RNA sequence: AUCGCAACCAUUCAAUCCAAACAAGAAUCUACUUCGUCCGGUUCAAGCACCAACAACCCAAAACAAUCAACAUGUCUCCCUGCACCUGCAACUGCUGCUCCGGCGACUGCAACUCCUGCUCCUGCAACAGCUGCACCGUAUGUUGUCCCCCAUC
Number, nucleotide and partner (000 for none) at each position: 001a000002u000003c000004g000005c000006a000007a000008c000009c000010a000011u000012u000013c000014a000015a000016u000017c000018c000019a000020a000021a000022c000023a000024a000025g000026a000027a000028u000029c000030u000031a000032c000033u000034u000035c000036g000037u000038c000039c000040g000041g000042u000043u000044c000045a000046a000047g000048c000049a000050c000051c000052a000053a000054c000055a000056a000057c000058c000059c000060a000061a000062a000063a000064c000065a000066a000067u000068c000069a000070a000071c000072a000073u000074g000075u000076c000077u000078c000079c000080c000081u105082g104083c103084a000085c000086c000087u000088g098089c097090a096091a000092c000093u000094g000095c000096u090097g089098c088099u000100c000101c000102g000103g083104c082105g081106a000107c000108u000109g134110c133111a132112a000113c000114u000115c000116c000117u000118g125119c124120u000121c000122c000123u000124g119125c118126a000127a000128c000129a000130g000131c000132u111133g110134c109135a000136c000137c000138g000139u000140a000141u000142g000143u000144u000145g000146u000147c000148c000149c000150c000151c000152a000153u000154c000

This 154-nucleotide RNA from Aspergillus sydowii belongs to the Rfam family "A. fumigatus sRNA Afu_254". It is annotated as a small RNA. NCBI's taxonomy places the organism under Eukaryota, Fungi, saccharomyceta, leotiomyceta, Aspergillus sydowii. For this family Rfam cites "Small ncRNA transcriptome analysis from Aspergillus fumigatus suggests a novel mechanism for regulation of protein synthesis" (Jochl et al., Nucleic Acids Res, 2008). The family's consensus secondary structure was predicted with WAR.